This 67-nucleotide sequence from Bombyx mori belongs to the Rfam family "mir-2774 microRNA precursor family".
Pairs were carried over by alignment from the consensus structure, which was predicted with RNAalifold.
Taxonomically the source falls in Bombyx (Eukaryota, Opisthokonta, Metazoa, Lepidoptera).
It scores 56 bits against the family's covariance model.
RNA sequence: ACAACAGUCGGACCGUUGGUCCAUUGAGAAAUAUCAUGCGCUCGGUAGAAGAUCUUCACUCCGUCGU
Numbered sequence: 001a002c003a004a005c006a007g008u009c010g011g012a013c014c015g016u017u018g019g020u021c022c023a024u025u026g027a028g029a030a031a032u033a034u035c036a037u038g039c040g041c042u043c044g045g046u047a048g049a050a051g052a053u054c055u056u057c058a059c060u061c062c063g064u065c066g067u
Stems, first nucleotide, its partner, number of pairs: 004064002011057002015053003020049002023046006